[Rfam]
RNA: tRNA
RNA sequence: GGGAGGUUGUCCGAGUGGUUAAGGAGACAGACUUAAGAUCUGUUGGCGUUCAUCGCCGCGUGGGUUCGAACCCCACACCUCCCA
Numbered sequence: 001g002g003g004a005g006g007u008u009g010u011c012c013g014a015g016u017g018g019u020u021a022a023g024g025a026g027a028c029a030g031a032c033u034u035a036a037g038a039u040c041u042g043u044u045g046g047c048g049u050u051c052a053u054c055g056c057c058g059c060g061u062g063g064g065u066u067c068g069a070a071c072c073c074c075a076c077a078c079c080u081c082c083c084a
Stems, first nucleotide, its partner, number of pairs: 001083007010025003027043005060076005